[Rfam]
RNA sequence: CCGCUCUAAGGGCAAACCCAUCGUGAGGUGGGGACGCAAAGUGACAGCAGACGAAAGUCUGGGCUGCAUUACUGAG
Numbered sequence: 001c002c003g004c005u006c007u008a009a010g011g012g013c014a015a016a017c018c019c020a021u022c023g024u025g026a027g028g029u030g031g032g033g034a035c036g037c038a039a040a041g042u043g044a045c046a047g048c049a050g051a052c053g054a055a056a057g058u059c060u061g062g063g064c065u066g067c068a069u070u071a072c073u074g075a076g
Stems, first nucleotide, its partner, number of pairs: 012037002017032006040070004045066003048061005
Dot-bracket structure: ...........((...((((((....))))))...))..((((.((((((((....)))))..)))))))......
The family of this 76-nucleotide sequence from Vibrio agarilyticus is "c-di-GMP-I riboswitch aptamer".
The source organism's lineage runs through Bacteria, Pseudomonadati, Vibrionales, Vibrionaceae and Vibrio.
A search with the family's covariance model found it, with a score of 54 bits.
The family's consensus secondary structure is taken from published work.